[Rfam]
RNA sequence: GGAAUAUAAAAAAUCGUCUCUUAAGUUUUAACUAAAAAAACUAAGAACCGGCUCUUAGAUACAGUUAAGAGUCGGUUCUUAGCUUUUUUAGUUAAAAGUUAAGAAACAGUUUCUUAUAUUCU
Numbered sequence: 001g002g003a004a005u006a007u008a009a010a011a012a013a014u015c016g017u018c019u020c021u022u023a024a025g026u027u028u029u030a031a032c033u034a035a036a037a038a039a040a041c042u043a044a045g046a047a048c049c050g051g052c053u054c055u056u057a058g059a060u061a062c063a064g065u066u067a068a069g070a071g072u073c074g075g076u077u078c079u080u081a082g083c084u085u086u087u088u089u090a091g092u093u094a095a096a097a098g099u100u101a102a103g104a105a106a107c108a109g110u111u112u113c114u115u116a117u118a119u120u121c122u
Stems, first nucleotide, its partner, number of pairs: 001122009011112004016107002019104006026097014041082007
The record is a 122-nucleotide RNA sequence from Brassica oleracea, which matches "MIR9563 microRNA precursor family" in Rfam. Rfam links the family to the GO terms RISC complex and miRNA-mediated post-transcriptional gene silencing. NCBI's taxonomy places the organism under Eukaryota, Spermatophyta, Brassiceae, Brassica, Brassica oleracea. The family's consensus secondary structure was predicted with RNAalifold.